[Rfam]
RNA sequence: GGGUCAGCUUGUAGUUCAUCGGUUACUUCAUUCGUUUAACAGAAAAGUGUUUCUGAAAUUCUUUGGGGUUCAAAACCCGCGGGCGCUAUCUGGCCUCGUC
Numbered sequence: 001g002g003g004u005c006a007g008c009u010u011g012u013a014g015u016u017c018a019u020c021g022g023u024u025a026c027u028u029c030a031u032u033c034g035u036u037u038a039a040c041a042g043a044a045a046a047g048u049g050u051u052u053c054u055g056a057a058a059u060u061c062u063u064u065g066g067g068g069u070u071c072a073a074a075a076c077c078c079g080c081g082g083g084c085g086c087u088a089u090c091u092g093g094c095c096u097c098g099u100c
Stems, first nucleotide, its partner, number of pairs: 002095006014084004020079003027074002
The record is a 100-nucleotide RNA from Eleutherodactylus coqui, which matches "Vault RNA" in Rfam. By type it is a non-coding RNA gene.